[Rfam]
RNA sequence: GAAGAGCUCCAGGUGAUCGCUGGUUCCGCCGGCCCGGCCGGUGGAACGGGAGGAAAGUCCGGGCUCCGCAGGGCAGGAUGGUUCCUAACGGGAACCGGGGGUGACCCUAGGGAAAGUGCCACAGAAAGCAGACCGCUCCGCCGCCGGCGUCGCGCAAGCGACGGAGGCGCCGGGGUAAGGGUGAAAGGGUGAGGUAAGAGCUCACCAGGUCCGGCGGUGACGUCGGAUGCUCGGCAAACCCCAUCCGGAGCAAGGCCGAAUAGGGGAGCGUUUGAGGGCGGCCCGUCCGAAGCUCCCGGGUAGGCUGCUCGAGGUCGUCGGCGACGGCGAUCCUAGAUGAAUGAUCACCACCCCGCGGGGGGUAACCGCCGCGGGGGACAGAACCCGGCUUACGGGGCUCUUCGACC
Numbered sequence: 001g002a003a004g005a006g007c008u009c010c011a012g013g014u015g016a017u018c019g020c021u022g023g024u025u026c027c028g029c030c031g032g033c034c035c036g037g038c039c040g041g042u043g044g045a046a047c048g049g050g051a052g053g054a055a056a057g058u059c060c061g062g063g064c065u066c067c068g069c070a071g072g073g074c075a076g077g078a079u080g081g082u083u084c085c086u087a088a089c090g091g092g093a094a095c096c097g098g099g100g101g102u103g104a105c106c107c108u109a110g111g112g113a114a115a116g117u118g119c120c121a122c123a124g125a126a127a128g129c130a131g132a133c134c135g136c137u138c139c140g141c142c143g144c145c146g147g148c149g150u151c152g153c154g155c156a157a158g159c160g161a162c163g164g165a166g167g168c169g170c171c172g173g174g175g176u177a178a179g180g181g182u183g184a185a186a187g188g189g190u191g192a193g194g195u196a197a198g199a200g201c202u203c204a205c206c207a208g209g210u211c212c213g214g215c216g217g218u219g220a221c222g223u224c225g226g227a228u229g230c231u232c233g234g235c236a237a238a239c240c241c242c243a244u245c246c247g248g249a250g251c252a253a254g255g256c257c258g259a260a261u262a263g264g265g266g267a268g269c270g271u272u273u274g275a276g277g278g279c280g281g282c283c284c285g286u287c288c289g290a291a292g293c294u295c296c297c298g299g300g301u302a303g304g305c306u307g308c309u310c311g312a313g314g315u316c317g318u319c320g321g322c323g324a325c326g327g328c329g330a331u332c333c334u335a336g337a338u339g340a341a342u343g344a345u346c347a348c349c350a351c352c353c354c355g356c357g358g359g360g361g362g363u364a365a366c367c368g369c370c371g372c373g374g375g376g377g378a379c380a381g382a383a384c385c386c387g388g389c390u391u392a393c394g395g396g397g398c399u400c401u402u403c404g405a406c407c
Base pairs, nucleotide, nucleotide: 001403002402003401004400005399006398007397008396009395010394012349013348014347015346016345017344018343020050021049023047024046025045026044027043028042029041030040031039055391056390057389059388060387061386062385063384064250065249066248067247071284072283073282074281076246077245078244079243080242081095082094083093084092085091096110097108098107099106100105111241112240116239117238118235119234120233133180134179135176136175137174138173139172140171142169143168144167145166188206189205190204191203192202193201208230209228210227211226212225213224214223215222216221254306255305256304257303264297265296266295267294268293269292276288277287278286279285313332314331315330316329317328318327319326320325
A member of the RNA family "Bacterial RNase P class A" from Geothermobacter ehrlichii, 407 nucleotides long. Its family is annotated with tRNA processing, ribonuclease P activity and dimeric ribonuclease P complex in the Gene Ontology. Rfam classes the family as a ribozyme. Rfam describes the family as follows. Ribonuclease P (RNase P) is a ubiquitous endoribonuclease, found in archaea, bacteria and eukarya as well as chloroplasts and mitochondria. Lineage of the source: Bacteria > Pseudomonadati > Desulfuromonadales > Geothermobacteraceae > Geothermobacter.